[Rfam]
RNA sequence: CGCACACGGGUGUGCGCUGUGCCGGGGAGACAUCCCGGCAAGGCGCUCCGGUGUCGGGGCAGGUGUCCCGGCAAAACCCGUGGAGGCAUAACCGGAGAAAGACGGAAAGAU
Numbered sequence: 001c002g003c004a005c006a007c008g009g010g011u012g013u014g015c016g017c018u019g020u021g022c023c024g025g026g027g028a029g030a031c032a033u034c035c036c037g038g039c040a041a042g043g044c045g046c047u048c049c050g051g052u053g054u055c056g057g058g059g060c061a062g063g064u065g066u067c068c069c070g071g072c073a074a075a076a077c078c079c080g081u082g083g084a085g086g087c088a089u090a091a092c093c094g095g096a097g098a099a100a101g102a103c104g105g106a107a108a109g110a111u
Stems, first nucleotide, its partner, number of pairs: 001085001003083001005082006014046002022037001025035001053072008
RNA: rpsB sRNA
Organism: Nisaea acidiphila